[Rfam]
A member of the RNA family "Lysine riboswitch aptamer" from Clostridium frigidicarnis, 177 nucleotides long. The match comes from Rfam's covariance-model search (109 bits). For this family Rfam cites "Riboswitches Control Fundamental Biochemical Pathways in Bacillus subtilis and Other Bacteria" (Mandal et al., Cell, 2003). Gene Ontology term of the family: lysine biosynthetic process.

RNA sequence: AAUAAAGAUAGAGGUUGCGUUAUUUAAUAGUACAGCAUUAGAGAUAAGCACGAUGAAGAUGUUGGAAAGGAAAUUUCGCCGAAGUAAUUUAGUUAAUGCUUUAAAACUAAUUAACUGGGUUUACAUAUAAUAUGUGUAAAACUGUCACAAUAGUAUUUGUGAUGAGCUAUCAUUCAU
Numbered sequence: 001a002a003u004a005a006a007g008a009u010a011g012a013g014g015u016u017g018c019g020u021u022a023u024u025u026a027a028u029a030g031u032a033c034a035g036c037a038u039u040a041g042a043g044a045u046a047a048g049c050a051c052g053a054u055g056a057a058g059a060u061g062u063u064g065g066a067a068a069g070g071a072a073a074u075u076u077c078g079c080c081g082a083a084g085u086a087a088u089u090u091a092g093u094u095a096a097u098g099c100u101u102u103a104a105a106a107c108u109a110a111u112u113a114a115c116u117g118g119g120u121u122u123a124c125a126u127a128u129a130a131u132a133u134g135u136g137u138a139a140a141a142c143u144g145u146c147a148c149a150a151u152a153g154u155a156u157u158u159g160u161g162a163u164g165a166g167c168u169a170u171c172a173u174u175c176a177u
Base pairs, nucleotide, nucleotide: 007171008170009169010168011167017079018078019077022074023073024072025071033064034063035062036061037060038059039058083116084115085114087112089110090109091108092107093106094105117143118142120140121139122138123137124136125135126134127133145162146161147160148159149158150157